[Rfam]
RNA sequence: CAAUCAGAAAGUGAAAAAAAAUGAUUCCACUUUAUUGAACAAAACAUUUGCACAGUAGCACUGCGCAAAUGUUUUGUUCAAUAAAGUGGAAUCAUU
Numbered sequence: 001c002a003a004u005c006a007g008a009a010a011g012u013g014a015a016a017a018a019a020a021a022u023g024a025u026u027c028c029a030c031u032u033u034a035u036u037g038a039a040c041a042a043a044a045c046a047u048u049u050g051c052a053c054a055g056u057a058g059c060a061c062u063g064c065g066c067a068a069a070u071g072u073u074u075u076g077u078u079c080a081a082u083a084a085a086g087u088g089g090a091a092u093c094a095u096u
Stems, first nucleotide, its partner, number of pairs: 020096004025091004030086002033083005042075001043073009

The record is a 96-nucleotide sequence from Elachura formosa, which matches "Insect-specific Flavivirus 3' UTR cis-acting replication element (CRE)" in Rfam.
Pairs were carried over by alignment from the consensus structure, which was predicted with LocARNA.
The match comes from Rfam's covariance-model search (46 bits).
Flavi_ISFV_CRE is a Insect specific Flavivirus family. Flavivirus 3' UTR cis-acting replication element (CRE) plays a crucial role in the virus replication and is thought to be needed for the formation of a 'replication complex', it is composed of a small hairpin (sHP) and a larger structural element (3'SL).
The family's RNA type in Rfam is cis-regulatory element.